This 109-nucleotide RNA from Mus spicilegus belongs to the Rfam family "Small nucleolar RNA SNORA32". It is annotated as an H/ACA-box small nucleolar RNA. Its family is annotated with RNA processing and nucleolus in the Gene Ontology.
RNA sequence: UGGUCAUUACCAAGGCUUUUAGAAUGCAGUUUCUCAGUUGCUGUGGACAUGACCAUAAAGAAAAAUUCCCAUGGAGCUUUUCAUAGGCUACUCCCUGUUGGGAACAUUU
Dot-bracket structure: ..(((((..(((.............((((........))))..)))..)))))..............((((....(.................)....)))).......